[Rfam]
RNA sequence: GGCAUGUGAGUGGAGCUCUUUUAAGUCCAAUAAAAGGAUCUUGCUGGUGAAAAAAAGCUGCUAAUUUAUGGAUUCCUCAGCCCUAUCCAAAAUAAAAUUGGAUUGGUUUGUGGAUUGCAUAUGUAAGGAGCUUUUGUUACCCAUGUUUGAGCCUUGUUUGGAUUGAAGGGAGCUCUACACUAUUUUUGC
Dot-bracket structure: ............((((((((...((((((......(.....................((.((....((((....(.....................................)....))))....)).)).....................)......))))))...))))))))..............
RNA: MIR159 microRNA precursor family